[Rfam]
RNA sequence: AUGCCUUAAACUAAUGAGUAAGGAAAAUAAUGGGCCUGUAGGAGUACAGGCCUCAGAGUACAAAUAUCUCUGAAGAAUUUCUGUGAUGGCACAGGUCGCCCCUGAGUGACCCACUUACUUUCGUGGGAUGCUCACGGAGUAGUGAUCUUGCCUA
Dot-bracket structure: ...(((((..........)))))........((((((((......))))))))(((((.........)))))...............(((..(((((((.((.(((((.(((((........))))).)))))..))....))))))).)))..
Numbered sequence: 001a002u003g004c005c006u007u008a009a010a011c012u013a014a015u016g017a018g019u020a021a022g023g024a025a026a027a028u029a030a031u032g033g034g035c036c037u038g039u040a041g042g043a044g045u046a047c048a049g050g051c052c053u054c055a056g057a058g059u060a061c062a063a064a065u066a067u068c069u070c071u072g073a074a075g076a077a078u079u080u081c082u083g084u085g086a087u088g089g090c091a092c093a094g095g096u097c098g099c100c101c102c103u104g105a106g107u108g109a110c111c112c113a114c115u116u117a118c119u120u121u122c123g124u125g126g127g128a129u130g131c132u133c134a135c136g137g138a139g140u141a142g143u144g145a146u147c148u149u150g151c152c153u154a
Stems, first nucleotide, its partner, number of pairs: 004023005032053008054072005088152003093148007101137002104133005110127005
Rfam assigns this 154-nucleotide RNA sequence from Dreissena polymorpha to the family "U12 minor spliceosomal RNA". The match comes from Rfam's covariance-model search (109 bits). The source organism's lineage runs through Eukaryota, Eumetazoa, Euheterodonta, Myida and Dreissena.